[Rfam]
RNA sequence: UCCGGGGGAAGCUCACCGCCGAGGCCACGCACGGGGUGUGCGUCACCCACGCCCCGCCUCGGGGAAGGUCUGAGGGAAGGGCCGCCAGCGGCUUCCAGCAGAGCCCCGCCCGCGAGUGGGGCGGGUGAGCCACCAGCAAGGGGGGGCGCCGCGCUUAUCUCUGCCGGGCCGGUCUAUGGGCAGGAGAAGCCGAGCAGGCUCUGGAUGGGCGCGGGCUUUCCCCCCGCCCAGCGGAGCCCCGGCGGAUGCUCGUGGCCCCGCGGUGCUUUGAGACAGACUCACGGCCGGCGAUUGAGUCCAAUGGGUGAGGUGGGGCAGCGCCCUACAACCCAAUUCAGACUACUCUCCUCCGGG
Numbered sequence: 001u002c003c004g005g006g007g008g009a010a011g012c013u014c015a016c017c018g019c020c021g022a023g024g025c026c027a028c029g030c031a032c033g034g035g036g037u038g039u040g041c042g043u044c045a046c047c048c049a050c051g052c053c054c055c056g057c058c059u060c061g062g063g064g065a066a067g068g069u070c071u072g073a074g075g076g077a078a079g080g081g082c083c084g085c086c087a088g089c090g091g092c093u094u095c096c097a098g099c100a101g102a103g104c105c106c107c108g109c110c111c112g113c114g115a116g117u118g119g120g121g122c123g124g125g126u127g128a129g130c131c132a133c134c135a136g137c138a139a140g141g142g143g144g145g146g147c148g149c150c151g152c153g154c155u156u157a158u159c160u161c162u163g164c165c166g167g168g169c170c171g172g173u174c175u176a177u178g179g180g181c182a183g184g185a186g187a188a189g190c191c192g193a194g195c196a197g198g199c200u201c202u203g204g205a206u207g208g209g210c211g212c213g214g215g216c217u218u219u220c221c222c223c224c225c226g227c228c229c230a231g232c233g234g235a236g237c238c239c240c241g242g243c244g245g246a247u248g249c250u251c252g253u254g255g256c257c258c259c260g261c262g263g264u265g266c267u268u269u270g271a272g273a274c275a276g277a278c279u280c281a282c283g284g285c286c287g288g289c290g291a292u293u294g295a296g297u298c299c300a301a302u303g304g305g306u307g308a309g310g311u312g313g314g315g316c317a318g319c320g321c322c323c324u325a326c327a328a329c330c331c332a333a334u335u336c337a338g339a340c341u342a343c344u345c346u347c348c349u350c351c352g353g354g
Stems, first nucleotide, its partner, number of pairs: 001354004007348003012309006020061005034048005070338005080286004090105002093103003106124006125282005131276001145267009310326007

The family of this 354-nucleotide RNA sequence from Jacana jacana is "Nuclear RNase P".
For this family Rfam cites "Ribonuclease P: unity and diversity in a tRNA processing ribozyme" (Frank and Pace, Annu Rev Biochem, 1998).
By type it is a ribozyme.
Rfam describes the family as follows. Ribonuclease P (RNase P) is a ubiquitous endoribonuclease, found in archaea, bacteria and eukarya as well as chloroplasts and mitochondria. Its best characterised activity is the generation of mature 5'-ends of tRNAs by cleaving the 5'-leader elements of precursor-tRNAs.